About this RNA: This 101-nucleotide RNA sequence from Pongo abelii belongs to the Rfam family "Y RNA". Pairs were carried over by alignment from the consensus structure, which is taken from published work. A reference for the family is Teunissen et al. (2000), "Conserved features of Y RNAs: a comparison of experimentally derived secondary structures", Nucleic Acids Res. It is annotated as a non-coding RNA gene. A search with the family's covariance model found it, with a score of 47 bits.

RNA sequence: GGCUGGUUGAAGUGCAAGGGUGUUUACAACUAAUUUACCACAAGCAGUUACAGAUUUCUUUGUUCCUUCCCCACUCCCAAUGCUCCACUUGACUAGCAAAA
Numbered sequence: 001g002g003c004u005g006g007u008u009g010a011a012g013u014g015c016a017a018g019g020g021u022g023u024u025u026a027c028a029a030c031u032a033a034u035u036u037a038c039c040a041c042a043a044g045c046a047g048u049u050a051c052a053g054a055u056u057u058c059u060u061u062g063u064u065c066c067u068u069c070c071c072c073a074c075u076c077c078c079a080a081u082g083c084u085c086c087a088c089u090u091g092a093c094u095a096g097c098a099a100a101a
Stems, first nucleotide, its partner, number of pairs: 002097007010090002014086001016081001019078002022076001028064003032060002